[Rfam]
Background: This 53-nucleotide sequence from Amborella trichopoda belongs to the Rfam family "Plastid-psbl-rps4 3UTR RNA". Plastid psbl-rps4-psbC is a non-coding RNA (ncRNA) present in plastids. It is compose of two short stem-loops in tandem in the terminal 3 prime untranslate region (3UTR) mostly in psbl and rps4 seed plants genes. NCBI's taxonomy places the organism under Eukaryota, Tracheophyta, Spermatophyta, Magnoliopsida, Amborella. Pairs were carried over by alignment from the consensus structure, which was predicted with LocARNA. It is annotated as a cis-regulatory element. On this family, see Richter et al., Plant Commun 2023: "Retrograde signaling in plants: A critical review focusing on the GUN pathway and beyond".
RNA sequence: GAGAGAGAGAGGGAUUCGAACCCUCGGUACAAAUAGCUUGUACAACGGAUUAG
Numbered sequence: 001g002a003g004a005g006a007g008a009g010a011g012g013g014a015u016u017c018g019a020a021c022c023c024u025c026g027g028u029a030c031a032a033a034u035a036g037c038u039u040g041u042a043c044a045a046c047g048g049a050u051u052a053g
Base pairs, nucleotide, nucleotide: 009025010024011023012022013021027043028042029041030040031039032038